[Rfam]
RNA sequence: AGAGUUGGCGAGGUGGUUGCAGUUCUCUGGUGUUCCGACACCGAGAAUUGAGGAAAGUCCGGGCUUCCAAAGACCAGACUGCUGGGUAACGCCCAGUGCGGGUGACCGUGAGGACAGUGCCACAGAAAAAUACCGCCAAGGAGUUGGUUAAGGCUCUUUGGUAAGGGUGCAAAGGUGCGGUAAGAGCGCACCAGCAACAUCGAGAGGUGUUGGCUCGGUAAACCCCAGUCGGAAGCAAGGUCGAGGGAAACUAAGGUUGGUCUUUUACCAGUUUCCGUUUUGGGAGUACCGCUUGAGGCUUCUGGUAACAGGAGUCCCAGAUAGAUAACUACCCUCAAGCGUUUGUCUUGGGAACAGAACCCGGCUUAUGUCUGACUCUCUUU
Numbered sequence: 001a002g003a004g005u006u007g008g009c010g011a012g013g014u015g016g017u018u019g020c021a022g023u024u025c026u027c028u029g030g031u032g033u034u035c036c037g038a039c040a041c042c043g044a045g046a047a048u049u050g051a052g053g054a055a056a057g058u059c060c061g062g063g064c065u066u067c068c069a070a071a072g073a074c075c076a077g078a079c080u081g082c083u084g085g086g087u088a089a090c091g092c093c094c095a096g097u098g099c100g101g102g103u104g105a106c107c108g109u110g111a112g113g114a115c116a117g118u119g120c121c122a123c124a125g126a127a128a129a130a131u132a133c134c135g136c137c138a139a140g141g142a143g144u145u146g147g148u149u150a151a152g153g154c155u156c157u158u159u160g161g162u163a164a165g166g167g168u169g170c171a172a173a174g175g176u177g178c179g180g181u182a183a184g185a186g187c188g189c190a191c192c193a194g195c196a197a198c199a200u201c202g203a204g205a206g207g208u209g210u211u212g213g214c215u216c217g218g219u220a221a222a223c224c225c226c227a228g229u230c231g232g233a234a235g236c237a238a239g240g241u242c243g244a245g246g247g248a249a250a251c252u253a254a255g256g257u258u259g260g261u262c263u264u265u266u267a268c269c270a271g272u273u274u275c276c277g278u279u280u281u282g283g284g285a286g287u288a289c290c291g292c293u294u295g296a297g298g299c300u301u302c303u304g305g306u307a308a309c310a311g312g313a314g315u316c317c318c319a320g321a322u323a324g325a326u327a328a329c330u331a332c333c334c335u336c337a338a339g340c341g342u343u344u345g346u347c348u349u350g351g352g353a354a355c356a357g358a359a360c361c362c363g364g365c366u367u368a369u370g371u372c373u374g375a376c377u378c379u380c381u382u383u
Base pairs, nucleotide, nucleotide: 001379002378003377004376005375006374007373008372011369012333013332014331015330016329017328018327020050021049022048023047024046025045026044027043055367056366057365059364060363061362062361063360064235065234066233067232072264073263077230078229079228080227081226082096083095084094085093086092097111098109099108100107101106112225113224117223118222119219120218121217133166134165135162136161137160138159139158140157141156142155143154144153145152174192175191176190177189178188179187194214195212196211197210198209199208200207201206239290240289241288246276247275248274249273250272251271255269256268257267259265297316298315299314300313301312302311303310304309